[Rfam]
RNA sequence: GUCUGACACGGACCGACGGUGGCCAGUCUGGCCCCGACGUUCGGCAGAGGCGCGAUGAC
Numbered sequence: 001g002u003c004u005g006a007c008a009c010g011g012a013c014c015g016a017c018g019g020u021g022g023c024c025a026g027u028c029u030g031g032c033c034c035c036g037a038c039g040u041u042c043g044g045c046a047g048a049g050g051c052g053c054g055a056u057g058a059c
Stems, first nucleotide, its partner, number of pairs: 007049001009047001011045001013043001015042002018035002021033005

The family of this 59-nucleotide RNA sequence from Variovorax sp. PDC80 is "Selenocysteine insertion sequence 3". The family's RNA type in Rfam is cis-regulatory element. For this family Rfam cites "Solution structure of mRNA hairpins promoting selenocysteine incorporation in Escherichia coli and their base-specific interaction with special elongation factor SELB" (Huttenhofer et al., RNA, 1996). The family has 24 seed sequences and 640 matches in Rfam 15.1. NCBI's taxonomy places the organism under Bacteria, Pseudomonadati, Pseudomonadota, Comamonadaceae, Variovorax.